[Rfam]
RNA: MIR6288 microRNA precursor family
RNA sequence: CUCAAAUUAGUCACUUGUAAUUUUCUAAUUAGUUCUUGGGUGUGUUAAAAUUUUCUAAGAAUCAAUUAGAAAAUACCAAGUGGCUAGUUUCGA
Numbered sequence: 001c002u003c004a005a006a007u008u009a010g011u012c013a014c015u016u017g018u019a020a021u022u023u024u025c026u027a028a029u030u031a032g033u034u035c036u037u038g039g040g041u042g043u044g045u046u047a048a049a050a051u052u053u054u055c056u057a058a059g060a061a062u063c064a065a066u067u068a069g070a071a072a073a074u075a076c077c078a079a080g081u082g083g084c085u086a087g088u089u090u091c092g093a
Stems, first nucleotide, its partner, number of pairs: 002092001004090014020074011032062008